[Rfam]
RNA sequence: GCACUGAAAGUGAGAGUUGGAGAAAUACAAACUGAUAUGAUUUGUGCAAGUCCAAACAAGCAUGAUCGGUCACUGAAUCAGCUUGUUUUUCUCCAAUAUCUCACCUUCAGACA
Numbered sequence: 001g002c003a004c005u006g007a008a009a010g011u012g013a014g015a016g017u018u019g020g021a022g023a024a025a026u027a028c029a030a031a032c033u034g035a036u037a038u039g040a041u042u043u044g045u046g047c048a049a050g051u052c053c054a055a056a057c058a059a060g061c062a063u064g065a066u067c068g069g070u071c072a073c074u075g076a077a078u079c080a081g082c083u084u085g086u087u088u089u090u091c092u093c094c095a096a097u098a099u100c101u102c103a104c105c106u107u108c109a110g111a112c113a
Stems, first nucleotide, its partner, number of pairs: 004110005011103004016097006023090003027086004032081005
The family of this 113-nucleotide RNA from Digitaria exilis is "MIR2275 microRNA precursor family". The source organism's lineage runs through Eukaryota, Streptophyta, commelinids, Poales and Digitaria. Rfam links the family to the GO terms miRNA-mediated post-transcriptional gene silencing and RISC complex.